[Rfam]
RNA sequence: UGGUGCCCAAUGUGGGGCUAGAGAACAGGGGAUUCAGUGAAGGAUGCCAUUCGAGUUGCACGCAAAAGGAAAAGAAAGCAGUGAGCCACGUGGGAACCUGCUGCGUCUGCAUCUCUCUGGUAAGUGAGUGGUGAUUAUGGGUCAAGAAAUGAGCCAACAUAAGAUGUUCGUUGAAGGAUUAGGAAAGGCUCUAAAGGCACAAGGAGUAAAGGUAAAAAACUAAGCAUUUGUGCCAGUAUUUUGAUUAUAUUAAGGAAGUUUGCCCUU
Numbered sequence: 001u002g003g004u005g006c007c008c009a010a011u012g013u014g015g016g017g018c019u020a021g022a023g024a025a026c027a028g029g030g031g032a033u034u035c036a037g038u039g040a041a042g043g044a045u046g047c048c049a050u051u052c053g054a055g056u057u058g059c060a061c062g063c064a065a066a067a068g069g070a071a072a073a074g075a076a077a078g079c080a081g082u083g084a085g086c087c088a089c090g091u092g093g094g095a096a097c098c099u100g101c102u103g104c105g106u107c108u109g110c111a112u113c114u115c116u117c118u119g120g121u122a123a124g125u126g127a128g129u130g131g132u133g134a135u136u137a138u139g140g141g142u143c144a145a146g147a148a149a150u151g152a153g154c155c156a157a158c159a160u161a162a163g164a165u166g167u168u169c170g171u172u173g174a175a176g177g178a179u180u181a182g183g184a185a186a187g188g189c190u191c192u193a194a195a196g197g198c199a200c201a202a203g204g205a206g207u208a209a210a211g212g213u214a215a216a217a218a219a220c221u222a223a224g225c226a227u228u229u230g231u232g233c234c235a236g237u238a239u240u241u242u243g244a245u246u247a248u249a250u251u252a253a254g255g256a257a258g259u260u261u262g263c264c265c266u267u
Stems, first nucleotide, its partner, number of pairs: 006031003012026002036051004077118002080114002087109002089105005125144003129141001132139002150193002153189003200243005206237002210229004252267004
Dot-bracket structure: .....(((...((...........))..)))....((((........)))).........................((.((.....(((((((.......)))))..))...))..))......(((.(..((....)).)))).....((.(((...............................)))..))......(((((.((..((((............))))......)).)))))........((((........))))

Annotation
Rfam assigns this 267-nucleotide RNA from Molossus molossus to the family "Mason-Pfizer monkey virus packaging signal". Rfam links the family to the GO term viral genome packaging. The match comes from Rfam's covariance-model search (122 bits). On this family, see Harrison et al., J Virol 1995: "Secondary structure model of the Mason-Pfizer monkey virus 5' leader sequence: identification of a structural motif common to a variety of retroviruses". About the family: This family represents a group of sequences that are related to the Mason-Pfizer monkey virus (MPMV) packaging signal. The packaging signal is located in the 5' UTR and is required for specific RNA encapsidation. NCBI's taxonomy places the organism under Eukaryota, Vertebrata, Euteleostomi, Molossidae, Molossus. The base pairs follow the family's consensus structure, which was predicted with PFOLD.